c-di-GMP-II-GAG riboswitch aptamer: an 88-nucleotide RNA from Virgisporangium aurantiacum.
The literature on the family includes a 2017 paper in Proc Natl Acad Sci U S A by Weinberg et al., "Bioinformatic analysis of riboswitch structures uncovers variant classes with altered ligand specificity".
Taxonomically the source falls in Virgisporangium (Bacteria, Actinomycetota, Micromonosporales, Micromonosporaceae).
Its family is annotated with regulation of gene expression and cyclic-di-GMP binding in the Gene Ontology.
The family is grouped with related families in Rfam's "c-di-GMP_II riboswitch clan".
The match comes from Rfam's covariance-model search (54 bits).
RNA sequence: CAGCAACGGGAUUGCGUUGAUCCGCCGGGCGACAGCUGGUCGCCCUUGGCCCGGCGGGGAGCGAGUGGCGAAACCGAGCCCGGUCCGC
Number, nucleotide and partner (000 for none) at each position: 001c000002a000003g086004c000005a084006a000007c082008g081009g080010g079011a000012u000013u063014g062015c061016g000017u000018u000019g000020a000021u000022c057023c056024g055025c054026c053027g052028g051029g050030c000031g000032a000033c000034a000035g000036c000037u000038g075039g074040u071041c070042g069043c068044c067045c000046u000047u000048g000049g000050c029051c028052c027053g026054g025055c024056g023057g022058g000059g000060a000061g015062c014063g013064a000065g000066u000067g044068g043069c042070g041071a040072a000073a000074c039075c038076g000077a000078g000079c010080c009081c008082g007083g000084u005085c000086c003087g000088c000